[Rfam]
RNA sequence: UCUUUCACGUUUCCUUGUCACUUGUUCGUCUCGUCUAAUAUAAAGAACUGGACGGAGAACUGAUAAGGGCUUGUGGGUGA
Numbered sequence: 001u002c003u004u005u006c007a008c009g010u011u012u013c014c015u016u017g018u019c020a021c022u023u024g025u026u027c028g029u030c031u032c033g034u035c036u037a038a039u040a041u042a043a044a045g046a047a048c049u050g051g052a053c054g055g056a057g058a059a060c061u062g063a064u065a066a067g068g069g070c071u072u073g074u075g076g077g078u079g080a
Stems, first nucleotide, its partner, number of pairs: 012069009022059002025056003030051002